Shown here is a 78-nucleotide RNA from Chanos chanos, a member of the family "Small nucleolar RNA SNORD74". Pairs were carried over by alignment from the consensus structure, which was predicted with PFOLD. The source organism's lineage runs through Eukaryota, Eumetazoa, Osteoglossocephalai, Gonorynchiformes and Chanos.
RNA sequence: CCAUGCAUGACGAUAAAUUGUGUUGGUAGGGACAUCUGAGUAAUGUUGAUGAAUUGCCAACCUUUCUGACACGCAUGG
Numbered sequence: 001c002c003a004u005g006c007a008u009g010a011c012g013a014u015a016a017a018u019u020g021u022g023u024u025g026g027u028a029g030g031g032a033c034a035u036c037u038g039a040g041u042a043a044u045g046u047u048g049a050u051g052a053a054u055u056g057c058c059a060a061c062c063u064u065u066c067u068g069a070c071a072c073g074c075a076u077g078g
Base pairs, nucleotide, nucleotide: 001078002077003076004075005074
Dot-bracket structure: (((((....................................................................)))))